[Rfam]
RNA: Bacterial RNase P class A
RNA sequence: GUGAUGGGUCGCCCCACCGCGGCGCUUUCGGGCGACGAGGAAAGUCCGGGCAACGCAGAGCACCUUGCUUCCUAACGGGAAGGACUGGCGCAAGCCAGGACAGCGAGUGCCACAGAAAAUUACCGCCUACGUCGCCCUCGGGCGGCCGGUAAGGGUGAAAAGGUGCGGUAAGAGCGCACCAGCGGGCGGGUAACCGUCCCGGCUGGGUAAACCUCAGGGGUUGAAAGACCAAAUAAGCUGGUACGCCGGCUUCUUCGGAAGCAUCGGCACCGGGCGGCUCGUCCGGCGCCAGCGGGUAGGUUGAUGGAGCCUUUCCGCGAGGACUGGCCUAGAUAAAUGGUGGGGCAGCUGCCUCGGCAGCGGACAGAACCCGGCUUACAGACCCAUCACCCCA
Numbered sequence: 001g002u003g004a005u006g007g008g009u010c011g012c013c014c015c016a017c018c019g020c021g022g023c024g025c026u027u028u029c030g031g032g033c034g035a036c037g038a039g040g041a042a043a044g045u046c047c048g049g050g051c052a053a054c055g056c057a058g059a060g061c062a063c064c065u066u067g068c069u070u071c072c073u074a075a076c077g078g079g080a081a082g083g084a085c086u087g088g089c090g091c092a093a094g095c096c097a098g099g100a101c102a103g104c105g106a107g108u109g110c111c112a113c114a115g116a117a118a119a120u121u122a123c124c125g126c127c128u129a130c131g132u133c134g135c136c137c138u139c140g141g142g143c144g145g146c147c148g149g150u151a152a153g154g155g156u157g158a159a160a161a162g163g164u165g166c167g168g169u170a171a172g173a174g175c176g177c178a179c180c181a182g183c184g185g186g187c188g189g190g191u192a193a194c195c196g197u198c199c200c201g202g203c204u205g206g207g208u209a210a211a212c213c214u215c216a217g218g219g220g221u222u223g224a225a226a227g228a229c230c231a232a233a234u235a236a237g238c239u240g241g242u243a244c245g246c247c248g249g250c251u252u253c254u255u256c257g258g259a260a261g262c263a264u265c266g267g268c269a270c271c272g273g274g275c276g277g278c279u280c281g282u283c284c285g286g287c288g289c290c291a292g293c294g295g296g297u298a299g300g301u302u303g304a305u306g307g308a309g310c311c312u313u314u315c316c317g318c319g320a321g322g323a324c325u326g327g328c329c330u331a332g333a334u335a336a337a338u339g340g341u342g343g344g345g346c347a348g349c350u351g352c353c354u355c356g357g358c359a360g361c362g363g364a365c366a367g368a369a370c371c372c373g374g375c376u377u378a379c380a381g382a383c384c385c386a387u388c389a390c391c392c393c394a
Base pairs, nucleotide, nucleotide: 001390002389003388004387005386006385007384008383009382010381011379012345013344014343015342016341017340018339020037021036023034024033025032026031042377043376044375046374047373048372049371050370051223052222053221054220058280059279060278061277063219064218065217066216067215068082069081070080071079072078083101085098086097087096088095089094102214103213107212108211109208110207111206123154124153125150126149127148131146132145133144134143135142136141162180163179164178165177166176167175182203183201184200185199186198187196188195189194227302228301229300230299237293238292239291240290241289242288271285272284273283274282275281309328310327311326314323315322316321